[Rfam]
Shown here is a 109-nucleotide RNA from Bacteroidales bacterium Barb4, a member of the family "Bacteroidales small SRP". Pairs were carried over by alignment from the consensus structure, which is taken from published work. The match comes from Rfam's covariance-model search (101 bits). By type it is a non-coding RNA gene. Gene Ontology terms of the family: signal recognition particle, plasma membrane targeting and SRP-dependent cotranslational protein targeting to membrane, signal sequence recognition. Its Rfam clan is "SRP clan".
RNA sequence: GCGCCCAGGGUAAGUCCUAUACGGCAUGCUCCCUCGGAACUCCCCCAGGGCUUGAUCGCAGCAAGGGUACGCAGGUUGUAGCGGCGCGAUGUAGUAAGCUUACCCUACU
Numbered sequence: 001g002c003g004c005c006c007a008g009g010g011u012a013a014g015u016c017c018u019a020u021a022c023g024g025c026a027u028g029c030u031c032c033c034u035c036g037g038a039a040c041u042c043c044c045c046c047a048g049g050g051c052u053u054g055a056u057c058g059c060a061g062c063a064a065g066g067g068u069a070c071g072c073a074g075g076u077u078g079u080a081g082c083g084g085c086g087c088g089a090u091g092u093a094g095u096a097a098g099c100u101u102a103c104c105c106u107a108c109u
Stems, first nucleotide, its partner, number of pairs: 008105008017094005022088002024085002